[Rfam]
RNA sequence: UACCAACAACAACCCUUUUUAUUUUUUCAUUUUACUCGCAAGAGUAAAACUCCUUUUUCCCAUCUUCUUAGAAGGUGGGAUUUUUUAU
Number, nucleotide and partner (000 for none) at each position: 001u000002a000003c000004c000005a000006a000007c000008a000009a000010c000011a000012a000013c000014c000015c000016u000017u000018u000019u000020u000021a000022u000023u000024u000025u000026u000027u000028c000029a000030u000031u000032u047033u046034a045035c044036u043037c042038g000039c000040a000041a000042g037043a036044g035045u034046a033047a032048a000049a000050c000051u000052c000053c000054u000055u000056u000057u000058u080059c079060c078061c077062a076063u075064c074065u073066u072067c000068u000069u000070a000071g000072a066073a065074g064075g063076u062077g061078g060079g059080a058081u000082u000083u000084u000085u000086u000087a000088u000